[Rfam]
RNA sequence: CAAACGGCCCUUUUCAGGGCCACAAAUCCACAAGAAAAUAUGUAU
Numbered sequence: 001c002a003a004a005c006g007g008c009c010c011u012u013u014u015c016a017g018g019g020c021c022a023c024a025a026a027u028c029c030a031c032a033a034g035a036a037a038a039u040a041u042g043u044a045u
Stems, first nucleotide, its partner, number of pairs: 006021006
Record summary
This 45-nucleotide RNA from Eptatretus burgeri belongs to the Rfam family "Histone 3' UTR stem-loop". Rfam links the family to the GO term mRNA 3'-end processing by stem-loop binding and cleavage. Rfam classes the family as a cis-regulatory element. It scores 36 bits against the family's covariance model. About the family: The mRNAs of metazoan histone genes lack a poly-A tail. 3' end processing occurs at a site between a highly conserved stem-loop (modelled by this family) and a purine rich region around 20 nts downstream (the histone downstream element, or HDE). The stem-loop is bound by a 31 kDa stem-loop binding protein (SLBP - also termed the histone hairpin binding protein, or HBP). For this family Rfam cites "Structure of histone mRNA stem-loop, human stem-loop binding protein, and 3'hExo ternary complex" (Tan et al., Science, 2013). Pairs were carried over by alignment from the consensus structure, which is taken from published work.